[Rfam]
RNA sequence: GAUUUAUAAAGAAGCGCCGAGAGACAGGCUCUAUGACGCGCUAGCAACCCCUCCUAAAAUAGGAAACGGUGCUAAUUCCUGUCCCGAUUAUCGGGAAAUAUAAAUU
Dot-bracket structure: ((((((((....(((((...(((.[[[[)))......)))))((((.((..(((.......)))...))))))...(]]]].(((((...)))))..)))))))))
Numbered sequence: 001g002a003u004u005u006a007u008a009a010a011g012a013a014g015c016g017c018c019g020a021g022a023g024a025c026a027g028g029c030u031c032u033a034u035g036a037c038g039c040g041c042u043a044g045c046a047a048c049c050c051c052u053c054c055u056a057a058a059a060u061a062g063g064a065a066a067c068g069g070u071g072c073u074a075a076u077u078c079c080u081g082u083c084c085c086g087a088u089u090a091u092c093g094g095g096a097a098a099u100a101u102a103a104a105u106u
Stems, first nucleotide, its partner, number of pairs: 001106008013042005021031003025081004043073004048069002052064003077098001083095005
The family of this 106-nucleotide sequence from Ekhidna lutea is "SAM riboswitch aptamer (S box leader)". Its family is annotated with regulation of gene expression in the Gene Ontology. The match comes from Rfam's covariance-model search (82 bits). Rfam's curators write: The SAM riboswitch is found upstream of a number of genes which code for proteins involved in methionine or cysteine biosynthesis in Gram-positive bacteria. The SAM riboswitch acts at the level of transcription termination control. The predicted structure consists of a complex stem-loop region followed by a single stem loop terminator region. An alternative and mutually exclusive form involves bases in the 3' segment of helix 1 with those in the 5' region of helix 5 to form a structure termed the anti-terminator form.